[Rfam]
This 108-nucleotide RNA sequence from Rodentibacter trehalosifermentans belongs to the Rfam family "Aggregatibacter sRNA 22". It is annotated as a small RNA. Lineage of the source: Bacteria > Gammaproteobacteria > Pasteurellales > Pasteurellaceae > Rodentibacter. The family has 7 seed sequences and 101 matches in Rfam 15.1. On this family, see Oogai et al., DNA Res 2017: "Small RNA repertoires and their intraspecies variation in Aggregatibacter actinomycetemcomitans". The match comes from Rfam's covariance-model search (80 bits).
RNA sequence: GAGCAGUGACAAAAAACAACGUUUUUUAAACGUUGGUUUUGCCAACGGCACCAAAGGUGUGAAUAAAUUGCCCUAGUGAUUUAUGAAUAAUUCUAAAAAAGUUUUGAC
Numbered sequence: 001g002a003g004c005a006g007u008g009a010c011a012a013a014a015a016a017c018a019a020c021g022u023u024u025u026u027u028a029a030a031c032g033u034u035g036g037u038u039u040u041g042c043c044a045a046c047g048g049c050a051c052c053a054a055a056g057g058u059g060u061g062a063a064u065a066a067a068u069u070g071c072c073c074u075a076g077u078g079a080u081u082u083a084u085g086a087a088u089a090a091u092u093c094u095a096a097a098a099a100a101g102u103u104u105u106g107a108c
Base pairs, nucleotide, nucleotide: 011027012026013025014024015023016022017021031047032046033045034044035043036042037041048060049059050058051057052056063084064083065082066081067080068079069078070077071076087105089103090102091101092100